[Rfam]
RNA sequence: UUGACUAUGUGAUCUUGCUUUCGUAAUAAAAUUCUGUACAUAAAAGUCGAAAGUAUUGCUAUAGUUAAGGUUGCGCUUGCCUAUUUAGGCAUACUUCUCAGGAUGGCGCGUUGCAGUCCAACAAGAUCCAGGGACUGUACAGAAUUUUCCUAUACCUCGAGUCGGGUUUGGAAUCUAAGGUUGACUCGCUGUAA
Numbered sequence: 001u002u003g004a005c006u007a008u009g010u011g012a013u014c015u016u017g018c019u020u021u022c023g024u025a026a027u028a029a030a031a032u033u034c035u036g037u038a039c040a041u042a043a044a045a046g047u048c049g050a051a052a053g054u055a056u057u058g059c060u061a062u063a064g065u066u067a068a069g070g071u072u073g074c075g076c077u078u079g080c081c082u083a084u085u086u087a088g089g090c091a092u093a094c095u096u097c098u099c100a101g102g103a104u105g106g107c108g109c110g111u112u113g114c115a116g117u118c119c120a121a122c123a124a125g126a127u128c129c130a131g132g133g134a135c136u137g138u139a140c141a142g143a144a145u146u147u148u149c150c151u152a153u154a155c156c157u158c159g160a161g162u163c164g165g166g167u168u169u170g171g172a173a174u175c176u177a178a179g180g181u182u183g184a185c186u187c188g189c190u191g192u193a194a
Stems, first nucleotide, its partner, number of pairs: 001068009016055008027045001035141002073109005079090004096134004101129004110122004147173004152169001154167004158188006
RNA: Cripavirus internal ribosome entry site (IRES)